RNA sequence: AAGCUGUGAUGAAAACUGCACUUAAAGUGUAAGGUUGGGUCCUUCACAUUUAACUGUUCUUUCAGAUAUAUAACAAGUGCUACUGAGCUU
Numbered sequence: 001a002a003g004c005u006g007u008g009a010u011g012a013a014a015a016c017u018g019c020a021c022u023u024a025a026a027g028u029g030u031a032a033g034g035u036u037g038g039g040u041c042c043u044u045c046a047c048a049u050u051u052a053a054c055u056g057u058u059c060u061u062u063c064a065g066a067u068a069u070a071u072a073a074c075a076a077g078u079g080c081u082a083c084u085g086a087g088c089u090u
Stems, first nucleotide, its partner, number of pairs: 001090004
This 90-nucleotide RNA sequence from Artemisia annua belongs to the Rfam family "small nucleolar RNA snoR114". Pairs were carried over by alignment from the consensus structure, which was predicted with RNAalifold. Rfam 15.1 lists 1,645 matches to the family in 183 species.